[Rfam]
RNA sequence: GUAUCCCGGGUCUGUGGUUGAAAGUCGAUGCCAGUCGCAGGCAAAACGAUCCACGUAAGGCCACCCAAAAUGUGGAGGCUGAUCAUAGUGCGGCCUAGAUGUAAGUCCAGCCGAGCAAUCGAGAGAAGGAGUUGUGAUGUUGAACACAGAGCUAAACUUCCAGCUGGCGGGUGUGGGGGAAAAAACCAGGUCAGACGGGAUGG
Number, nucleotide and partner (000 for none) at each position: 001g000002u202003a201004u200005c199006c198007c197008g196009g000010g000011u000012c194013u193014g192015u188016g187017g186018u185019u184020g000021a000022a000023a000024g000025u000026c000027g000028a174029u173030g172031c041032c000033a000034g094035u093036c092037g091038c090039a089040g000041g031042c000043a000044a000045a000046a000047c000048g000049a000050u088051c000052c000053a000054c000055g083056u000057a000058a080059g079060g000061c077062c000063a000064c074065c000066c000067a000068a000069a000070a000071u000072g000073u000074g064075g000076a000077g061078g000079c059080u058081g000082a000083u055084c000085a000086u181087a000088g050089u039090g038091c037092g036093g035094c034095c000096u000097a000098g000099a000100u000101g000102u000103a000104a000105g000106u000107c167108c166109a165110g164111c163112c121113g120114a119115g000116c000117a000118a000119u114120c113121g112122a000123g000124a000125g160126a159127a158128g157129g000130a000131g000132u000133u000134g152135u151136g000137a000138u148139g147140u146141u000142g000143a000144a000145c000146a140147c139148a138149g000150a000151g135152c134153u000154a000155a000156a000157c128158u127159u126160c125161c000162a000163g111164c110165u109166g108167g107168c000169g000170g000171g000172u030173g029174u028175g000176g000177g000178g000179g000180a000181a086182a000183a000184a019185a018186c017187c016188a015189g000190g000191u000192c014193a013194g012195a000196c008197g007198g006199g005200a004201u003202g002203g000